Rfam assigns this 72-nucleotide RNA sequence from Aquarana catesbeiana to the family "Small nucleolar RNA SNORD73". The family's consensus secondary structure was predicted with PFOLD. Its family is annotated with RNA processing and nucleolus in the Gene Ontology. For this family Rfam cites "A novel snoRNA (U73) is encoded within the introns of the human and mouse ribosomal protein S3a genes" (Rebane et al., Gene, 1998).

RNA sequence: AAUGAAUGAUGACAAAGUGUUUUGGUACGAAAUGAUAUCUGUGAUUGCUAACUUUGAGAUCGUUCUGACAUU
Numbered sequence: 001a002a003u004g005a006a007u008g009a010u011g012a013c014a015a016a017g018u019g020u021u022u023u024g025g026u027a028c029g030a031a032a033u034g035a036u037a038u039c040u041g042u043g044a045u046u047g048c049u050a051a052c053u054u055u056g057a058g059a060u061c062g063u064u065c066u067g068a069c070a071u072u
Stems, first nucleotide, its partner, number of pairs: 001072004